[Rfam]
RNA: Ribosomal protein L10 leader
Organism: Alkalicoccus daliensis
RNA sequence: UGAAUUAAAUAGAUCAUACCGUAGACAGCAGGGGCCCCCGGGCUUAAUUAUCCUGCCGAGGUUUGCAGCGGAAUGCUCUUCGCCUUUUCGGCGGAGAAUAUACAGCCUGCCUCCACGUCUACUAUGGAAGUGGAGGCUUUUUUAUGGCUCA
Number, nucleotide and partner (000 for none) at each position: 001u000002g000003a000004a000005u000006u000007a000008a000009a000010u000011a000012g000013a000014u000015c000016a000017u000018a000019c000020c000021g000022u000023a000024g000025a000026c000027a000028g056029c055030a054031g053032g052033g051034g043035c042036c041037c000038c000039c000040g000041g036042g035043c034044u000045u000046a000047a000048u000049u000050a000051u033052c032053c031054u030055g029056c028057c000058g000059a000060g000061g000062u000063u000064u000065g000066c000067a000068g000069c000070g000071g000072a000073a000074u000075g000076c000077u000078c000079u000080u000081c000082g000083c000084c000085u000086u000087u000088u000089c000090g000091g000092c000093g000094g000095a000096g000097a000098a000099u000100a000101u000102a000103c000104a000105g000106c000107c000108u000109g000110c136111c135112u134113c133114c132115a131116c130117g000118u128119c127120u000121a000122c000123u000124a000125u000126g000127g119128a118129a000130g116131u115132g114133g113134a112135g111136g110137c000138u000139u000140u000141u000142u000143u000144a000145u000146g000147g000148c000149u000150c000151a000